[Rfam]
This 75-nucleotide RNA from Arthrobacter sp. PAMC 25486 belongs to the Rfam family "Actino-pnp RNA". The match comes from Rfam's covariance-model search (60 bits). By type it is a cis-regulatory element.
RNA sequence: CGCGGUCCUCGGUAGUGGCUUCCGGGAAGAAACUUACACCAGUUUCCCGCCCGUGGGCCUCGAUCGAAGACCGGG
Number, nucleotide and partner (000 for none) at each position: 001c075002g000003c073004g072005g071006u070007c069008c000009u067010c066011g065012g064013u063014a000015g000016u000017g059018g058019c057020u056021u055022c000023c053024g052025g051026g050027a000028a000029g000030a000031a000032a000033c000034u000035u000036a000037c000038a000039c000040c000041a000042g000043u000044u000045u000046c000047c000048c000049g000050c026051c025052c024053g023054u000055g021056g020057g019058c018059c017060u000061c000062g000063a013064u012065c011066g010067a009068a000069g007070a006071c005072c004073g003074g000075g001